[Rfam]
Annotation
This 73-nucleotide RNA belongs to the Rfam family "skipping-rope RNA". The family's RNA type in Rfam is small RNA.
RNA sequence: AGUAUUAGAGGAUAGAAAUGGCAGCUAUCACCCAAUGUUAGGAGAUGCAGGAAAAGUCGCCCUGCCUUAUGCU
Numbered sequence: 001a002g003u004a005u006u007a008g009a010g011g012a013u014a015g016a017a018a019u020g021g022c023a024g025c026u027a028u029c030a031c032c033c034a035a036u037g038u039u040a041g042g043a044g045a046u047g048c049a050g051g052a053a054a055a056g057u058c059g060c061c062c063u064g065c066c067u068u069a070u071g072c073u
Stems, first nucleotide, its partner, number of pairs: 001073005007067002011029005019059004031042001047065005